[Rfam]
RNA sequence: GGGCUGGCUUUAGCUCAGCGGUUACUUCGCCGUUUCUUUGUUAAGAUUACACUCAACCUCUCUGGGUUGUUCGAGACCCGCGGGCGCUCUUCAGUCCUUUU
Numbered sequence: 001g002g003g004c005u006g007g008c009u010u011u012a013g014c015u016c017a018g019c020g021g022u023u024a025c026u027u028c029g030c031c032g033u034u035u036c037u038u039u040g041u042u043a044a045g046a047u048u049a050c051a052c053u054c055a056a057c058c059u060c061u062c063u064g065g066g067u068u069g070u071u072c073g074a075g076a077c078c079c080g081c082g083g084g085c086g087c088u089c090u091u092c093a094g095u096c097c098u099u100u101u
Stems, first nucleotide, its partner, number of pairs: 002096006013085004018081004026075004

A member of the RNA family "Vault RNA" from Colobus angolensis, 101 nucleotides long. Pairs were carried over by alignment from the consensus structure, which is taken from published work. The source organism's lineage runs through Eukaryota, Vertebrata, Tetrapoda, Mammalia and Colobus angolensis. For this family Rfam cites "Evolution of Vault RNAs" (Stadler et al., Mol Biol Evol, 2009). This family of RNAs are found as part of the enigmatic vault ribonucleoprotein complex. By type it is a non-coding RNA gene.